[Rfam]
RNA sequence: AAGAAAGUGACUGCUGCCCCGCACAGGGGCGAAGCUAAUAAACCAAGAACAAAGCAAGUUUCAUAGAGGCCGAAGUGCAUCAAACGGUGUAGAAGCCCGAACCCCGAGCGCCAG
Number, nucleotide and partner (000 for none) at each position: 001a000002a000003g000004a000005a000006a000007g000008u000009g000010a000011c092012u091013g090014c089015u031016g030017c029018c028019c027020c026021g000022c000023a000024c000025a000026g020027g019028g018029g017030c016031g015032a000033a000034g000035c000036u000037a000038a000039u000040a000041a000042a000043c000044c000045a000046a000047g000048a000049a000050c000051a000052a000053a000054g000055c000056a000057a000058g085059u084060u083061u000062c000063a000064u000065a000066g000067a000068g000069g000070c000071c000072g000073a000074a000075g000076u000077g000078c000079a000080u000081c000082a000083a060084a059085c058086g000087g000088u000089g014090u013091a012092g011093a000094a000095g000096c000097c000098c000099g000100a000101a000102c000103c000104c000105c000106g000107a000108g000109c114110g000111c000112c000113a000114g109